[Rfam]
RNA sequence: CUGCUCUCUAUGAAGGCCUGGUCUUCAAACCCUCUUUGGGUGGGAUUGGGUCUGAUGUUGAGCAG
Dot-bracket structure: (((((.........((((((((((.....(((.....)))..))))))))))........)))))
Numbered sequence: 001c002u003g004c005u006c007u008c009u010a011u012g013a014a015g016g017c018c019u020g021g022u023c024u025u026c027a028a029a030c031c032c033u034c035u036u037u038g039g040g041u042g043g044g045a046u047u048g049g050g051u052c053u054g055a056u057g058u059u060g061a062g063c064a065g
Stems, first nucleotide, its partner, number of pairs: 001065005015052010030040003